The record is a 71-nucleotide RNA sequence from Oryctes borbonicus, which matches "mir-34 microRNA precursor family" in Rfam. The match comes from Rfam's covariance-model search (54 bits). Rfam's curators write: Human mir-34a was discovered computationally and later experimentally verified. The mature sequence is excised from the 5' arm of the hairpin.
RNA sequence: UACAUUUUGGCAGUGUGGUUAGCUGGUUGUGUUACAUGAAUCACGGCCACUAUCCAUACUUCCGAGUUGUG
Numbered sequence: 001u002a003c004a005u006u007u008u009g010g011c012a013g014u015g016u017g018g019u020u021a022g023c024u025g026g027u028u029g030u031g032u033u034a035c036a037u038g039a040a041u042c043a044c045g046g047c048c049a050c051u052a053u054c055c056a057u058a059c060u061u062c063c064g065a066g067u068u069g070u071g
Base pairs, nucleotide, nucleotide: 002070003069004068006066009063010062012060013059014058015057016056017055018054020052021051022050024049025048026047027046028045029044030043031042
Dot-bracket structure: .(((.(..((.(((((((.(((.((((((((..........))))))))))).))))))).))..).))).

Annotation
Rfam links the family to the GO terms RISC complex and miRNA-mediated post-transcriptional gene silencing.